RNA sequence: GGGGCCGACCUGGUUUCGACAGGGGUUAUGAAGUAGGCAGGGCAUGCCGAGGACCCGUCACCUCGUUAAUCAAUGGGAAAAUCGUAACUGCAAACGACGAUACGUUCGCACUGGCAGCCUAAGGGCCGCCGUCCUCUGCCUGGUCUACUGACGGGCUAGUGUCGCAAGACCGGUAGCAAUACCGCCAGAGGUCAUUUACGUCAGUUAAGCUCUGUCGGCGUCACGACGCCAGGGUCGAAAACCUAGUGAAUCGCUGUAGCGCAGCGUGUUCGUCCGCGUCGCUCCGGUUAAAUCAAAUGACAGAACUACGCAUGUAGAACUGUUUAUGGACUGCUUCUGGACGCGGGUUCGAUUCCCGCCGGCUCCACCA
Numbered sequence: 001g002g003g004g005c006c007g008a009c010c011u012g013g014u015u016u017c018g019a020c021a022g023g024g025g026u027u028a029u030g031a032a033g034u035a036g037g038c039a040g041g042g043c044a045u046g047c048c049g050a051g052g053a054c055c056c057g058u059c060a061c062c063u064c065g066u067u068a069a070u071c072a073a074u075g076g077g078a079a080a081a082u083c084g085u086a087a088c089u090g091c092a093a094a095c096g097a098c099g100a101u102a103c104g105u106u107c108g109c110a111c112u113g114g115c116a117g118c119c120u121a122a123g124g125g126c127c128g129c130c131g132u133c134c135u136c137u138g139c140c141u142g143g144u145c146u147a148c149u150g151a152c153g154g155g156c157u158a159g160u161g162u163c164g165c166a167a168g169a170c171c172g173g174u175a176g177c178a179a180u181a182c183c184g185c186c187a188g189a190g191g192u193c194a195u196u197u198a199c200g201u202c203a204g205u206u207a208a209g210c211u212c213u214g215u216c217g218g219c220g221u222c223a224c225g226a227c228g229c230c231a232g233g234g235u236c237g238a239a240a241a242c243c244u245a246g247u248g249a250a251u252c253g254c255u256g257u258a259g260c261g262c263a264g265c266g267u268g269u270u271c272g273u274c275c276g277c278g279u280c281g282c283u284c285c286g287g288u289u290a291a292a293u294c295a296a297a298u299g300a301c302a303g304a305a306c307u308a309c310g311c312a313u314g315u316a317g318a319a320c321u322g323u324u325u326a327u328g329g330a331c332u333g334c335u336u337c338u339g340g341a342c343g344c345g346g347g348u349u350c351g352a353u354u355c356c357c358g359c360c361g362g363c364u365c366c367a368c369c370a
Stems, first nucleotide, its partner, number of pairs: 001366007020339007029330001033325001036324005043314005048065005054077005110132002113130003117126002133191006144164001155205003159201002209235006221249004253288004258283004264277003268306004272301003343359005

This 370-nucleotide RNA sequence from Paraburkholderia eburnea belongs to the Rfam family "transfer-messenger RNA".
It is annotated as a non-coding RNA gene.